[Rfam]
RNA sequence: UGUAUUGACUUAUAGAAAUAUAGUAUUAUAAUUACUACCGUGUUUUAAGCACUAUGGCAAUAAAGGCAUCUUAAAAUAGAUGUAUUGGACCCGAGGGCAGUGCUCGGCAUCUCCACUUAUUACUAUGGGGGUGAAACAGGAUCGACAUGCAUAGUAAAGGGGAUAGUUUUUGCCCGGUGAGAAAGCAGCCGUUUAAAUGCUCAAAAUUUAUAAGUGCAAACGAUAAUUUCGUUUUUGCAAAUGACAAUAAUAGCAGUGUUGCUGGCUUAGUGGCUGCUUAGUUUUGUCAUUAGCGCGGUUUUUUAGAGGGUUUCCCGGGCAACAGAAAAAUCCUCU
Dot-bracket structure: .......................................(((((...)))))...(((((.....((.((((........(((..((...(((((.......)))))(((((((............)))))))............)).)))........))))..))..)))))((((..[[..[[.)))).......]]]].............................................................................................[[[........((((((..]]]...........))))))..

The family of this 336-nucleotide sequence from Ehrlichia canis is "Alphaproteobacteria transfer-messenger RNA".
The sequence is in the family's curated seed alignment.
Lineage of the source: Bacteria > Pseudomonadota > Alphaproteobacteria > Rickettsiales > Ehrlichia canis.
A reference for the family is Williams and Bartel (1996), "Phylogenetic analysis of tmRNA secondary structure", RNA.
Its Rfam clan is "tRNA clan".
Pairs were carried over by alignment from the consensus structure, which is taken from published work.